[Rfam]
RNA sequence: GGUUGCAAGUUUAAGGCCAUAGCAGAAGUGCACAUGGCAUAGCUUGUCAGAGUCUGAUGAAUCUGCAACUUCUGCU
Numbered sequence: 001g002g003u004u005g006c007a008a009g010u011u012u013a014a015g016g017c018c019a020u021a022g023c024a025g026a027a028g029u030g031c032a033c034a035u036g037g038c039a040u041a042g043c044u045u046g047u048c049a050g051a052g053u054c055u056g057a058u059g060a061a062u063c064u065g066c067a068a069c070u071u072c073u074g075c076u
Base pairs, nucleotide, nucleotide: 013044016043017042021076022075023074024073025072026071027070028040029039030038048065049064050063051062053060054059